[Rfam]
RNA sequence: CACCGGACCCCGCGCGGCGUCCAUCCUGUGAACUCCCCCAGGGCCGGAAGGCAGCAAGGGUCAGCGGGCUCUGGCGGGUGCGCGGGGUCCCCUUCGU
Numbered sequence: 001c002a003c004c005g006g007a008c009c010c011c012g013c014g015c016g017g018c019g020u021c022c023a024u025c026c027u028g029u030g031a032a033c034u035c036c037c038c039c040a041g042g043g044c045c046g047g048a049a050g051g052c053a054g055c056a057a058g059g060g061u062c063a064g065c066g067g068g069c070u071c072u073g074g075c076g077g078g079u080g081c082g083c084g085g086g087g088u089c090c091c092c093u094u095c096g097u
Base pairs, nucleotide, nucleotide: 005090006089007088008087009086010085011084012083013082014081015078018076019075020074021073025068026067027066028065029064035060036059037058043052044051045050